[Rfam]
RNA sequence: GGAAUCAAAACGCUGAGUCCCCGCAAGGGGAACGGGGGAACCAACCUGAAGCCGAUUAGAUAUACCAUCGGUUUCUCGGGGUGAAUCCAGAGCAAGCGCUGCUUGCCGAGGUAGGGCACUUCCAAGCCCGAAUCCGACAGCUAACCUCGUAAGCGUAUUGGGAGAGAACCA
Numbered sequence: 001g002g003a004a005u006c007a008a009a010a011c012g013c014u015g016a017g018u019c020c021c022c023g024c025a026a027g028g029g030g031a032a033c034g035g036g037g038g039a040a041c042c043a044a045c046c047u048g049a050a051g052c053c054g055a056u057u058a059g060a061u062a063u064a065c066c067a068u069c070g071g072u073u074u075c076u077c078g079g080g081g082u083g084a085a086u087c088c089a090g091a092g093c094a095a096g097c098g099c100u101g102c103u104u105g106c107c108g109a110g111g112u113a114g115g116g117c118a119c120u121u122c123c124a125a126g127c128c129c130g131a132a133u134c135c136g137a138c139a140g141c142u143a144a145c146c147u148c149g150u151a152a153g154c155g156u157a158u159u160g161g162g163a164g165a166g167a168a169c170c171a
Base pairs, nucleotide, nucleotide: 011155012154013153014152018031019030020029032150033149034148035147036146037145042078079135080134081133087111088110114129115128116127117126
RNA: c-di-AMP riboswitch aptamer (ydaO/yuaA leader)
Organism: Paenibacillus sp. yr247